[Rfam]
The family of this 62-nucleotide sequence from Jaculus jaculus is "U7 small nuclear RNA". The family's consensus secondary structure was predicted with PFOLD. From the family's description: Animal histone pre-mRNAs are spliced by a different mechanism than nuclear pre-mRNAs and self-splicing introns. The family has 49 seed sequences and 10,439 matches in Rfam 15.1.
RNA sequence: AAGUGUUACAGCUCUUUUAGAAUUUGUCUAGCAGGCUUUCCGGCUCGCGCUGGAGAGCCCUC
Numbered sequence: 001a002a003g004u005g006u007u008a009c010a011g012c013u014c015u016u017u018u019a020g021a022a023u024u025u026g027u028c029u030a031g032c033a034g035g036c037u038u039u040c041c042g043g044c045u046c047g048c049g050c051u052g053g054a055g056a057g058c059c060c061u062c
Base pairs, nucleotide, nucleotide: 034059035058036057037056038055039054040053041052042051043050044049
Dot-bracket structure: .................................(((((((((((....)))))))))))...